[Rfam]
RNA: U1 spliceosomal RNA
RNA sequence: AUACUUACCUGGCAGGGGAGACACCAUGAUCAGGAAGGUGGUUCACCCAGGGCGAGGCUCUGCCAUUGCACUGAGGCAGUACUGACCCUUGCGAAUUCCCCAAAUGUGGGCGUCUCGACUGCAUAAUUUCUGUUAGUGGGGGACUGCGUACGCGCUCUCCCCUG
Numbered sequence: 001a002u003a004c005u006u007a008c009c010u011g012g013c014a015g016g017g018g019a020g021a022c023a024c025c026a027u028g029a030u031c032a033g034g035a036a037g038g039u040g041g042u043u044c045a046c047c048c049a050g051g052g053c054g055a056g057g058c059u060c061u062g063c064c065a066u067u068g069c070a071c072u073g074a075g076g077c078a079g080u081a082c083u084g085a086c087c088c089u090u091g092c093g094a095a096u097u098c099c100c101c102a103a104a105u106g107u108g109g110g111c112g113u114c115u116c117g118a119c120u121g122c123a124u125a126a127u128u129u130c131u132g133u134u135a136g137u138g139g140g141g142g143a144c145u146g147c148g149u150a151c152g153c154g155c156u157c158u159c160c161c162c163u164g
Stems, first nucleotide, its partner, number of pairs: 012122004016048003020044002023042005049090004054086001056083002060079005092117003095113001097110001099109002138163006146155003